Rfam assigns this 372-nucleotide RNA sequence from Parvibaculum lavamentivorans to the family "Bacterial RNase P class A". Taxonomically the source falls in Parvibaculum lavamentivorans (Bacteria, Pseudomonadati, Pseudomonadota, Hyphomicrobiales).
[Rfam]
RNA sequence: UCAGAUGGCCGGAUGGCCGCUGCGUGCAAGCGCAGAGGAAAGUCCGGGCUCCACGGAAACACGGUGCCGGUUAAUGGCCGGCGGGGGCGACCUCAGGGAAAGUGCCACAGAAAGCAAACCGCCGGUCCUUCGGGGCCGGUAAGGGUGAAAGGGUGCGGUAAGAGCGCACCGCGCGGACGGUAACGGACGCGGCACGGCAAACCCCACCGGGAGCAAAACCAAAUAGGGGCGGCAUUUCAGGCAUUUAGCCUGACAACCCGUUUCCGGGCCGCCGCCCGGGUUGGUUGCUCGAGGCGUCCGGCAACGGGCGUCCCAGAUGAAUGGCCAUCGCCCGCAAGGGCACAGAACCCGGCUUACAGGCCAUCUGACACC
Numbered sequence: 001u002c003a004g005a006u007g008g009c010c011g012g013a014u015g016g017c018c019g020c021u022g023c024g025u026g027c028a029a030g031c032g033c034a035g036a037g038g039a040a041a042g043u044c045c046g047g048g049c050u051c052c053a054c055g056g057a058a059a060c061a062c063g064g065u066g067c068c069g070g071u072u073a074a075u076g077g078c079c080g081g082c083g084g085g086g087g088c089g090a091c092c093u094c095a096g097g098g099a100a101a102g103u104g105c106c107a108c109a110g111a112a113a114g115c116a117a118a119c120c121g122c123c124g125g126u127c128c129u130u131c132g133g134g135g136c137c138g139g140u141a142a143g144g145g146u147g148a149a150a151g152g153g154u155g156c157g158g159u160a161a162g163a164g165c166g167c168a169c170c171g172c173g174c175g176g177a178c179g180g181u182a183a184c185g186g187a188c189g190c191g192g193c194a195c196g197g198c199a200a201a202c203c204c205c206a207c208c209g210g211g212a213g214c215a216a217a218a219c220c221a222a223a224u225a226g227g228g229g230c231g232g233c234a235u236u237u238c239a240g241g242c243a244u245u246u247a248g249c250c251u252g253a254c255a256a257c258c259c260g261u262u263u264c265c266g267g268g269c270c271g272c273c274g275c276c277c278g279g280g281u282u283g284g285u286u287g288c289u290c291g292a293g294g295c296g297u298c299c300g301g302c303a304a305c306g307g308g309c310g311u312c313c314c315a316g317a318u319g320a321a322u323g324g325c326c327a328u329c330g331c332c333c334g335c336a337a338g339g340g341c342a343c344a345g346a347a348c349c350c351g352g353c354u355u356a357c358a359g360g361c362c363a364u365c366u367g368a369c370a371c372c
Base pairs, nucleotide, nucleotide: 001368002367003366004365005364006363007362008361009360010359011357012329013328014327015326016325017324018323020035021034022033023032024031025030040355041354042353044352045351046350047349048348049213050212051211052210058263059262062209063208064207065206066205067081068080069079070078071077082096083094084093085092086091097204098203102202103201104198105197106196119144120143121140122139123138124137125136126135127134128133152170153169154168155167156166157165171193172191173190174189175188178185179184217286218285219284220283227277228276229275230274231273232272257268258267259266293312294311295310296309297308298307299306300305
About the family: Ribonuclease P (RNase P) is a ubiquitous endoribonuclease, found in archaea, bacteria and eukarya as well as chloroplasts and mitochondria. Its best characterised activity is the generation of mature 5'-ends of tRNAs by cleaving the 5'-leader elements of precursor-tRNAs. The family's consensus secondary structure is taken from published work. A reference for the family is Frank and Pace (1998), "Ribonuclease P: unity and diversity in a tRNA processing ribozyme", Annu Rev Biochem.